[Rfam]
RNA: Streptomyces-metH RNA
Organism: Streptomyces himastatinicus
RNA sequence: GCGUCCGGGUGUUGGGACGGCCCCCUGCCCUCUUGCCCCCGGCAGCUAGGCUGGCCUGGUGCGCCCUUGCCGAGUGAGGGCGCAAAGCCGACAGCCGUCGCACUCCAGGGAGCACAUCCAUG
Number, nucleotide and partner (000 for none) at each position: 001g000002c000003g000004u000005c000006c000007g000008g000009g000010u000011g000012u000013u000014g000015g000016g000017a000018c000019g000020g000021c000022c000023c000024c000025c000026u000027g000028c000029c000030c000031u000032c000033u000034u000035g000036c000037c000038c000039c000040c000041g000042g000043c000044a000045g000046c000047u000048a000049g000050g000051c000052u000053g000054g000055c000056c000057u000058g000059g000060u084061g083062c082063g081064c000065c079066c078067u077068u076069g000070c000071c000072g000073a000074g000075u000076g068077a067078g066079g065080g000081c063082g062083c061084a060085a000086a000087g101088c100089c000090g099091a098092c097093a000094g000095c000096c000097g092098u091099c090100g088101c087102a000103c000104u000105c000106c000107a000108g000109g000110g000111a000112g000113c000114a000115c000116a000117u000118c000119c000120a000121u000122g000